[Rfam]
RNA: U11 spliceosomal RNA
Organism: Austrofundulus limnaeus
RNA sequence: UAAAAGGGCUUCUGCCGUGACUGGCACAGGGCGGGUGAGGGAUUCUCAUCUGCUCUGCGGAAUCGCUAUCAAGAGAUUUCGGAAGCACAAUUUUUACAAACUGAGGUUGCUGGUGAUCUGUAGUCCCGGCGCCUCC
Numbered sequence: 001u002a003a004a005a006g007g008g009c010u011u012c013u014g015c016c017g018u019g020a021c022u023g024g025c026a027c028a029g030g031g032c033g034g035g036u037g038a039g040g041g042a043u044u045c046u047c048a049u050c051u052g053c054u055c056u057g058c059g060g061a062a063u064c065g066c067u068a069u070c071a072a073g074a075g076a077u078u079u080c081g082g083a084a085g086c087a088c089a090a091u092u093u094u095u096a097c098a099a100a101c102u103g104a105g106g107u108u109g110c111u112g113g114u115g116a117u118c119u120g121u122a123g124u125c126c127c128g129g130c131g132c133c134u135c136c
Stems, first nucleotide, its partner, number of pairs: 008086005013026005027057008037046001058081007104134004109130005115125003